[Rfam]
RNA: F6 TB sRNA
Organism: Nakamurella alba
RNA sequence: CCUGUGACCCCGGUUGCUGCCGGACCCCCGACCUGGCAGCCACCGGGGUCACUGC
Numbered sequence: 001c002c003u004g005u006g007a008c009c010c011c012g013g014u015u016g017c018u019g020c021c022g023g024a025c026c027c028c029c030g031a032c033c034u035g036g037c038a039g040c041c042a043c044c045g046g047g048g049u050c051a052c053u054g055c
Base pairs, nucleotide, nucleotide: 002054004052005051007049008048009047010046011045012044013043014042016040017039018038019037020036021035